[Rfam]
RNA sequence: CGGAUAGCUCCGGCUGAACCGCCAGACCCCCGACCCGGCGGUUCAGCCGGAGCUCUUGU
Numbered sequence: 001c002g003g004a005u006a007g008c009u010c011c012g013g014c015u016g017a018a019c020c021g022c023c024a025g026a027c028c029c030c031c032g033a034c035c036c037g038g039c040g041g042u043u044c045a046g047c048c049g050g051a052g053c054u055c056u057u058g059u
Stems, first nucleotide, its partner, number of pairs: 003057002007053008016044008

The record is a 59-nucleotide RNA from Gordonia sihwensis, which matches "F6 TB sRNA" in Rfam.
Pairs were carried over by alignment from the consensus structure, which is taken from published work.
The family's RNA type in Rfam is small RNA.
It scores 48 bits against the family's covariance model.